[Rfam]
RNA sequence: CAGUGUUACAGCUCUUAGAAUUAGAAUUUGUCUAGUAGGCUUUCUGGUUUUUGCCAGAAAAUCUUA
Numbered sequence: 001c002a003g004u005g006u007u008a009c010a011g012c013u014c015u016u017a018g019a020a021u022u023a024g025a026a027u028u029u030g031u032c033u034a035g036u037a038g039g040c041u042u043u044c045u046g047g048u049u050u051u052u053g054c055c056a057g058a059a060a061a062u063c064u065u066a
Base pairs, nucleotide, nucleotide: 038063039062041060042059043058044057045056046055047054048053
RNA: U7 small nuclear RNA